[Rfam]
RNA sequence: UUUCUGAUAAACACGUUUUCCUUCACAAAGAAAGGAUAUGUGUUUUUAGAAAAGCUGUGGCAUUUGUUGUAAUUGGGCAGCGGCCAGACAACCGUAGAGAUGGAAUCCACAGAUAUUUUUUUUACUCACCAUUCUACUAAAUCCAUCUCACAUUU
Numbered sequence: 001u002u003u004c005u006g007a008u009a010a011a012c013a014c015g016u017u018u019u020c021c022u023u024c025a026c027a028a029a030g031a032a033a034g035g036a037u038a039u040g041u042g043u044u045u046u047u048a049g050a051a052a053a054g055c056u057g058u059g060g061c062a063u064u065u066g067u068u069g070u071a072a073u074u075g076g077g078c079a080g081c082g083g084c085c086a087g088a089c090a091a092c093c094g095u096a097g098a099g100a101u102g103g104a105a106u107c108c109a110c111a112g113a114u115a116u117u118u119u120u121u122u123u124a125c126u127c128a129c130c131a132u133u134c135u136a137c138u139a140a141a142u143c144c145a146u147c148u149c150a151c152a153u154u155u
Stems, first nucleotide, its partner, number of pairs: 001053002005048003009045007017038001019036005097149008115132002119128001
Background
The family of this 155-nucleotide RNA sequence from Medicago truncatula is "small nucleolar RNA snoR143". The family's consensus secondary structure was predicted with RNAalifold. A reference for the family is Chen and Wu (2009), "Mining small RNA sequencing data: a new approach to identify small nucleolar RNAs in Arabidopsis", Nucleic Acids Res. Gene Ontology terms of the family: RNA processing and nucleolus.